[Rfam]
Nucleotides: 064
Stems, first nucleotide, its partner, number of pairs: 001018004006014003027042006
Number, partner (000 for none) and nucleotide at each position: 001018g002017g003016c004015c005000a006014c007013c008012u009000a010000c011000g012008g013007g014006g015004g016003g017002c018001u019000a020000u021000c022000a023000c024000a025000u026000a027042g028041g029040c030039a031038g032037g033000a034000a035000u036000a037032c038031c039030u040029g041028c042027c043000g044000u045000u046000u047000g048000c049000u050000a051000a052000c053000g054000g055000a056000a057000g058000a059000c060000a061000g062000a063000a064000a
The record is a 64-nucleotide RNA sequence from Oceanicola sp. HL-35, which matches "L2-Alphaproteobacteria ribosomal protein leader" in Rfam.
By type it is a cis-regulatory leader.
It is one of the family's seed sequences.